[Rfam]
RNA: Small nucleolar RNA SNORA55
RNA sequence: GCACCAAAACUUUCCCAUUUCUCACCACGCAGUGUGGGCCUUGGGGAUACGUGGUGCUUACAGAAGAGCAGAGUAAAUCCAGGCAGGUGACUUUGUUCAUCGAGUACCUGCUUCUACAACUCUGCAACAGUU
Dot-bracket structure: (((((......((((((..((...............))...)))))).....)))))..........((((((.......((((((((.................))))))))......)))))).......